[Rfam]
RNA: MIR2118 microRNA precursor family
Organism: Oryza meyeriana
RNA sequence: CUUGGGAAGAGAAAGAAAGAGGGUCUAAGACCUGUAGGAAUGGGAACAUGGAGGAGAGUGCAAGCUCCAUGCAUGCGGAGACUUGGCUUGCAGCUUUCCCAAUGCCUCCCAUUCCUAUGGUUCUUAGGUGCUUCUUCCUCUUCUUUUGGUCU
Numbered sequence: 001c002u003u004g005g006g007a008a009g010a011g012a013a014a015g016a017a018a019g020a021g022g023g024u025c026u027a028a029g030a031c032c033u034g035u036a037g038g039a040a041u042g043g044g045a046a047c048a049u050g051g052a053g054g055a056g057a058g059u060g061c062a063a064g065c066u067c068c069a070u071g072c073a074u075g076c077g078g079a080g081a082c083u084u085g086g087c088u089u090g091c092a093g094c095u096u097u098c099c100c101a102a103u104g105c106c107u108c109c110c111a112u113u114c115c116u117a118u119g120g121u122u123c124u125u126a127g128g129u130g131c132u133u134c135u136u137c138c139u140c141u142u143c144u145u146u147u148g149g150u151c152u
Stems, first nucleotide, its partner, number of pairs: 009143003013139001015137003019133003024128007032120002035117011047104003051100001053099007